Source information: The family of this 157-nucleotide RNA from Helianthus annuus is "small nucleolar RNA snoR137". The base pairs follow the family's consensus structure, which was predicted with RNAalifold. Gene Ontology terms of the family: nucleolus and RNA processing. Lineage of the source: Eukaryota > Streptophytina > Asterales > Asteroideae > Helianthus.
[Rfam]
RNA sequence: GUUGCUUCAUAAAUGGUGAAAUCUCUCAAAAUUAAAUGAGAGAAUUUCAAGUUUCCGGAGCAUAUAUUUAGUAUUAUUACUAUUAUAUAUCACCAGUAUUAAACAGCUCCAUGUGUGUAUACAAUUGCAUCGGCGUUACCUGUCUCCUGGAACAUUG
Numbered sequence: 001g002u003u004g005c006u007u008c009a010u011a012a013a014u015g016g017u018g019a020a021a022u023c024u025c026u027c028a029a030a031a032u033u034a035a036a037u038g039a040g041a042g043a044a045u046u047u048c049a050a051g052u053u054u055c056c057g058g059a060g061c062a063u064a065u066a067u068u069u070a071g072u073a074u075u076a077u078u079a080c081u082a083u084u085a086u087a088u089a090u091c092a093c094c095a096g097u098a099u100u101a102a103a104c105a106g107c108u109c110c111a112u113g114u115g116u117g118u119a120u121a122c123a124a125u126u127g128c129a130u131c132g133g134c135g136u137u138a139c140c141u142g143u144c145u146c147c148u149g150g151a152a153c154a155u156u157g
Stems, first nucleotide, its partner, number of pairs: 003062006017049005022043005093150004098145001105137003109133002111130003